[Rfam]
RNA: 7SK RNA
RNA sequence: GGGUGUGAGGGCACUCUGGCUGUGAGAUGUGAUAUGCCGUUGAUUGCAGGGGUUGAUUUGACAAUCUGCCAGCUCAGGCAGGUGUCCCCUUUCUUCCUCAAUGAUCCACGUGUGCUCCUCCUGAAGCUGUGUCUUGGCUGAGCAGGAACACCUCCCCAGCAGCAAUGGUGCUGCUCUCUGGUCACAAGGGUGUGUGGGAACUGUGCCCCCCGGCUGGGAGCUCUGAGUGAGCCCAAGGUCCACUUGCAGAGAAUGUAGGAGGGUCAGGCAUCGAACACUGAGACACACCUGAGUGAGAAGAUGCACAGAGCAGUCUGAUGUCAGCUU
Numbered sequence: 001g002g003g004u005g006u007g008a009g010g011g012c013a014c015u016c017u018g019g020c021u022g023u024g025a026g027a028u029g030u031g032a033u034a035u036g037c038c039g040u041u042g043a044u045u046g047c048a049g050g051g052g053u054u055g056a057u058u059u060g061a062c063a064a065u066c067u068g069c070c071a072g073c074u075c076a077g078g079c080a081g082g083u084g085u086c087c088c089c090u091u092u093c094u095u096c097c098u099c100a101a102u103g104a105u106c107c108a109c110g111u112g113u114g115c116u117c118c119u120c121c122u123g124a125a126g127c128u129g130u131g132u133c134u135u136g137g138c139u140g141a142g143c144a145g146g147a148a149c150a151c152c153u154c155c156c157c158a159g160c161a162g163c164a165a166u167g168g169u170g171c172u173g174c175u176c177u178c179u180g181g182u183c184a185c186a187a188g189g190g191u192g193u194g195u196g197g198g199a200a201c202u203g204u205g206c207c208c209c210c211c212g213g214c215u216g217g218g219a220g221c222u223c224u225g226a227g228u229g230a231g232c233c234c235a236a237g238g239u240c241c242a243c244u245u246g247c248a249g250a251g252a253a254u255g256u257a258g259g260a261g262g263g264u265c266a267g268g269c270a271u272c273g274a275a276c277a278c279u280g281a282g283a284c285a286c287a288c289c290u291g292a293g294u295g296a297g298a299a300g301a302u303g304c305a306c307a308g309a310g311c312a313g314u315c316u317g318a319u320g321u322c323a324g325c326u327u
Stems, first nucleotide, its partner, number of pairs: 001107003006100006013092001018089002024086002027083002030080002033077001038068002042066004047060002115168002120162001121137004126133001138159003145155003201268002206263002210259002213256002221251004227247005291327003295322002298319001300314001302312003